Rfam assigns this 102-nucleotide sequence from Pongo abelii to the family "Y RNA".
A reference for the family is Chen et al. (2000), "Ro ribonucleoproteins contribute to the resistance of Deinococcus radiodurans to ultraviolet irradiation", Genes Dev.
It scores 58 bits against the family's covariance model.
By type it is a non-coding RNA gene.
Pairs were carried over by alignment from the consensus structure, which is taken from published work.
Rfam describes the family as follows. Y RNAs are components of the Ro ribonucleoprotein particle (Ro RNP), in association with Ro60 and La proteins.

RNA sequence: GGCUGUUCUGAGUCCAUUGGUGUUUACAACUAAUUGGUUACAACUAGUUACAGAUGUCUUUGUUGCUGCUCCACUCCCACUACUUCACUUGACUAGCCUUAA
Numbered sequence: 001g002g003c004u005g006u007u008c009u010g011a012g013u014c015c016a017u018u019g020g021u022g023u024u025u026a027c028a029a030c031u032a033a034u035u036g037g038u039u040a041c042a043a044c045u046a047g048u049u050a051c052a053g054a055u056g057u058c059u060u061u062g063u064u065g066c067u068g069c070u071c072c073a074c075u076c077c078c079a080c081u082a083c084u085u086c087a088c089u090u091g092a093c094u095a096g097c098c099u100u101a102a
Stems, first nucleotide, its partner, number of pairs: 001098005007092002010090002016081001018079003022076001028064003032060002